[Rfam]
RNA sequence: GCCAUGGGGAUUGAAGCGAUCUCCCCGUGAGGCGACAUGCCCAAGUAUCGCGUCCCGUUCACUUAUACGAGGGCGCAUCAUG
Numbered sequence: 001g002c003c004a005u006g007g008g009g010a011u012u013g014a015a016g017c018g019a020u021c022u023c024c025c026c027g028u029g030a031g032g033c034g035a036c037a038u039g040c041c042c043a044a045g046u047a048u049c050g051c052g053u054c055c056c057g058u059u060c061a062c063u064u065a066u067a068c069g070a071g072g073g074c075g076c077a078u079c080a081u082g
Stems, first nucleotide, its partner, number of pairs: 005027006050076006